[Rfam]
RNA sequence: CGUAUGGUGCCCGGCGUUUAGCGACCAGGUGGCGAUACGGCCUUAACGAGGU
Numbered sequence: 001c002g003u004a005u006g007g008u009g010c011c012c013g014g015c016g017u018u019u020a021g022c023g024a025c026c027a028g029g030u031g032g033c034g035a036u037a038c039g040g041c042c043u044u045a046a047c048g049a050g051g052u
Stems, first nucleotide, its partner, number of pairs: 001039005007033002011028001013026002015023001
This 52-nucleotide sequence from Alkalimonas amylolytica belongs to the Rfam family "L31-Gammaproteobacteria ribosomal protein leader". Rfam classes the family as a cis-regulatory leader. The family's consensus secondary structure is taken from published work.